Rfam assigns this 138-nucleotide sequence from Brassica napus to the family "MIR9563 microRNA precursor family". NCBI's taxonomy places the organism under Eukaryota, Pentapetalae, Brassicaceae, Brassiceae, Brassica.

RNA sequence: GGAAUAUAAGAACCCGUCUCUUAACUUUUAGCUAAAAAAGCUAAGAACCGGUUUUUAAAUAAGAGUCUUAAAUAAGAGUUUUAAGAGCCGGUUCUUAAAUUUUUUAGUUAAAAGUGUAGAGACGGGUUCUUAUAUUCC
Dot-bracket structure: (((((((((((((((((((((..((((((((((((((((..(((((((((((((((..........................)))))))))))))))..))))))))))))))))..)))))))))))))))))))))
Numbered sequence: 001g002g003a004a005u006a007u008a009a010g011a012a013c014c015c016g017u018c019u020c021u022u023a024a025c026u027u028u029u030a031g032c033u034a035a036a037a038a039a040g041c042u043a044a045g046a047a048c049c050g051g052u053u054u055u056u057a058a059a060u061a062a063g064a065g066u067c068u069u070a071a072a073u074a075a076g077a078g079u080u081u082u083a084a085g086a087g088c089c090g091g092u093u094c095u096u097a098a099a100u101u102u103u104u105u106a107g108u109u110a111a112a113a114g115u116g117u118a119g120a121g122a123c124g125g126g127u128u129c130u131u132a133u134a135u136u137c138c
Stems, first nucleotide, its partner, number of pairs: 001138021024115016042097015